The record is a 206-nucleotide RNA from Actinoplanes awajinensis, which matches "c-di-AMP riboswitch aptamer (ydaO/yuaA leader)" in Rfam. Lineage of the source: Bacteria > Actinomycetota > Actinomycetes > Actinoplanes > Actinoplanes awajinensis.
RNA sequence: CGAGUCCUGCCGCCGAUCCACAGACACGAAGAGAUGGCAGGAGCGGGGGAACCACGUUUUCCGGCGCGCACCGCGCACGGUUCGGGAGUCGGCCGGCUUCCGAAACGGGUGACAGGGGGCGCGUCUUGGGGUGAAGCCGCAUAGGACGGCCGGGCCACUCUGCCCGAACCCGACAGCUCACCUCGUAGGCGUGGAGGAAUUUCCAU
Numbered sequence: 001c002g003a004g005u006c007c008u009g010c011c012g013c014c015g016a017u018c019c020a021c022a023g024a025c026a027c028g029a030a031g032a033g034a035u036g037g038c039a040g041g042a043g044c045g046g047g048g049g050a051a052c053c054a055c056g057u058u059u060u061c062c063g064g065c066g067c068g069c070a071c072c073g074c075g076c077a078c079g080g081u082u083c084g085g086g087a088g089u090c091g092g093c094c095g096g097c098u099u100c101c102g103a104a105a106c107g108g109g110u111g112a113c114a115g116g117g118g119g120c121g122c123g124u125c126u127u128g129g130g131g132u133g134a135a136g137c138c139g140c141a142u143a144g145g146a147c148g149g150c151c152g153g154g155c156c157a158c159u160c161u162g163c164c165c166g167a168a169c170c171c172g173a174c175a176g177c178u179c180a181c182c183u184c185g186u187a188g189g190c191g192u193g194g195a196g197g198a199a200u201u202u203c204c205a206u
Stems, first nucleotide, its partner, number of pairs: 001188001005042008043186006053128002129171003137149003152165004